[Rfam]
RNA sequence: UUGUGUUCUUGGCUUGUUUUAAGUUGCCUGUGAUUAAUGCAUGUAGCACAGGCAGCUAAAGCAAGUCUGGGAAGCAG
Numbered sequence: 001u002u003g004u005g006u007u008c009u010u011g012g013c014u015u016g017u018u019u020u021a022a023g024u025u026g027c028c029u030g031u032g033a034u035u036a037a038u039g040c041a042u043g044u045a046g047c048a049c050a051g052g053c054a055g056c057u058a059a060a061g062c063a064a065g066u067c068u069g070g071g072a073a074g075c076a077g
Base pairs, nucleotide, nucleotide: 003075004074006072007071008070011067012066013065014064015063016062017061018060019059020058022057023056024055025054026053027052028051029050030049032047
The record is a 77-nucleotide RNA from Eleutherodactylus coqui, which matches "mir-1788 microRNA precursor family" in Rfam. Lineage of the source: Eukaryota > Bilateria > Deuterostomia > Tetrapoda > Eleutherodactylus. It scores 74 bits against the family's covariance model. The family's consensus secondary structure was predicted with RNAalifold.